A member of the RNA family "permuted transfer-messenger RNA" from Yoonia vestfoldensis, 210 nucleotides long.

[Rfam]
RNA sequence: GGACAUAAACGCGCUCGUAAUACGCGGAUCGGACCCGGGGGCGGUACCCGGCGUCUCCACCAAACACUGCUCAUUUGGCAGCCAUGGGGACGAAACAGGAUCGACGAACGUCUAAAGGGGUUUGCUUUGGCUCGGUGAGUUACCACCGUUAUCGGUACAAAAAAGCUAGUUGCAAAUGACAACAAAGCACCAAUGGCGAUGGCUGCGUAA
Number, nucleotide and partner (000 for none) at each position: 001g132002g131003a000004c129005a128006u000007a000008a000009a000010c000011g000012c000013g121014c120015u119016c118017g000018u000019a000020a000021u000022a000023c000024g000025c110026g109027g000028a000029u107030c106031g105032g000033a000034c000035c051036c050037g049038g048039g047040g000041g000042c000043g000044g000045u000046a000047c039048c038049c037050g036051g035052c092053g091054u090055c089056u088057c087058c086059a000060c000061c000062a000063a000064a000065c000066a000067c000068u000069g000070c000071u000072c000073a000074u000075u000076u000077g000078g000079c000080a000081g000082c000083c000084a000085u000086g058087g057088g056089g055090a054091c053092g052093a000094a000095a000096c000097a000098g000099g000100a000101u000102c000103g000104a000105c031106g030107a029108a000109c026110g025111u000112c000113u000114a000115a000116a000117g000118g016119g015120g014121u013122u000123u000124g000125c000126u000127u000128u005129g004130g000131c002132u001133c148134g147135g146136u145137g000138a000139g000140u000141u000142a000143c000144c000145a136146c135147c134148g133149u000150u000151a000152u000153c000154g000155g000156u000157a000158c000159a000160a000161a000162a000163a000164a000165g000166c000167u000168a000169g000170u000171u000172g000173c000174a000175a000176a000177u000178g000179a000180c000181a000182a000183c000184a000185a000186a000187g000188c000189a000190c000191c000192a000193a000194u000195g000196g000197c000198g000199a000200u000201g000202g000203c000204u000205g000206c000207g000208u000209a000210a000
A search with the family's covariance model found it, with a score of 138 bits.